Source information: A member of the RNA family "mir-133 microRNA precursor family" from Gallus gallus, 73 nucleotides long. On this family, see Lagos-Quintana et al., Curr Biol 2002: "Identification of tissue-specific microRNAs from mouse". The base pairs follow the family's consensus structure, which was predicted with PFOLD. The sequence is in the family's curated seed alignment. Rfam links the family to the GO terms RISC complex and miRNA-mediated post-transcriptional gene silencing. Rfam's curators write: mir-133 was first experimentally characterised in mouse and homologues have since been discovered in several other species. The source organism's lineage runs through Eukaryota, Amniota, Sauria, Aves and Gallus.
RNA sequence: CUGCUCUGGCUGGUCAAACGGAACCAAGCCCGUCUUCUUCGGAGGUUUGGUCCCCUUCAACCAGCUAUAGCAG
Numbered sequence: 001c002u003g004c005u006c007u008g009g010c011u012g013g014u015c016a017a018a019c020g021g022a023a024c025c026a027a028g029c030c031c032g033u034c035u036u037c038u039u040c041g042g043a044g045g046u047u048u049g050g051u052c053c054c055c056u057u058c059a060a061c062c063a064g065c066u067a068u069a070g071c072a073g
Base pairs, nucleotide, nucleotide: 003071004070005069008066009065010064011063012062013061014060017057018056020053021052022051024050025049026048027047028046029045030044